[Rfam]
RNA sequence: AGAUGAACGAAACACCCCGCCCGCGGGAAACCGCGAGCGGUGCCGUCGCGUGGCCUCCCCAGUCGCGUACCGGCCGUGCCUUCGCGCACAUCCCCGGGGCCCCAGGUCCCGGACUUCCUCACCGAUCGGA
Numbered sequence: 001a002g003a004u005g006a007a008c009g010a011a012a013c014a015c016c017c018c019g020c021c022c023g024c025g026g027g028a029a030a031c032c033g034c035g036a037g038c039g040g041u042g043c044c045g046u047c048g049c050g051u052g053g054c055c056u057c058c059c060c061a062g063u064c065g066c067g068u069a070c071c072g073g074c075c076g077u078g079c080c081u082u083c084g085c086g087c088a089c090a091u092c093c094c095c096g097g098g099g100c101c102c103c104a105g106g107u108c109c110c111g112g113a114c115u116u117c118c119u120c121a122c123c124g125a126u127c128g129g130a
Stems, first nucleotide, its partner, number of pairs: 004121003009117002017040004022035005042074004049067006076089004094112008122129002

Rfam assigns this 130-nucleotide sequence from Streptomyces sp. TverLS-915 to the family "Streptomyces RNA 5676". Identified by deep sequencing of transcriptome at the end of exponential growth phase. Appears longer on northern blot than sequencing transcript. This indicates processing step. Streptomyces specific. Rfam classes the family as a small RNA.